The record is a 137-nucleotide RNA sequence from Carlito syrichta, which matches "Small nucleolar RNA SNORA41" in Rfam. It is annotated as an H/ACA-box small nucleolar RNA. It scores 136 bits against the family's covariance model. ACA41 is a member of the H/ACA class of snoRNA that guide the sites of modification of uridines to pseudouridines.
RNA sequence: UUCCACAGCUACUGGUCUACAGCUGCUCUUGGUAGUGGCAGCUGUGGCAUUCCUCUGUGGGAAAGAAACUGUUAACACGAUGAAACACCUCUUUCUUAGCAAAACAGAAAGUAGGUUUGUGUGUGUGACGGACACAA
Numbered sequence: 001u002u003c004c005a006c007a008g009c010u011a012c013u014g015g016u017c018u019a020c021a022g023c024u025g026c027u028c029u030u031g032g033u034a035g036u037g038g039c040a041g042c043u044g045u046g047g048c049a050u051u052c053c054u055c056u057g058u059g060g061g062a063a064a065g066a067a068a069c070u071g072u073u074a075a076c077a078c079g080a081u082g083a084a085a086c087a088c089c090u091c092u093u094u095c096u097u098a099g100c101a102a103a104a105c106a107g108a109a110a111g112u113a114g115g116u117u118u119g120u121g122u123g124u125g126u127g128a129c130g131g132a133c134a135c136a137a
Stems, first nucleotide, its partner, number of pairs: 003060004017047009075126005088115003091111006